[Rfam]
RNA sequence: UUGCCAGCAUCUAUUUGAGCUGGACUGUAAUUUAUUUAAAAUAUUUCGACCGGUAUCCCUAAUGGAACUGGAUUGGAGG
Dot-bracket structure: (.((((((.((.....))))))).).)...................((((((((.(((.....)))))))).)))....
Numbered sequence: 001u002u003g004c005c006a007g008c009a010u011c012u013a014u015u016u017g018a019g020c021u022g023g024a025c026u027g028u029a030a031u032u033u034a035u036u037u038a039a040a041a042u043a044u045u046u047c048g049a050c051c052g053g054u055a056u057c058c059c060u061a062a063u064g065g066a067a068c069u070g071g072a073u074u075g076g077a078g079g
Stems, first nucleotide, its partner, number of pairs: 001027001003025001004023005010018002047075003050071005056066003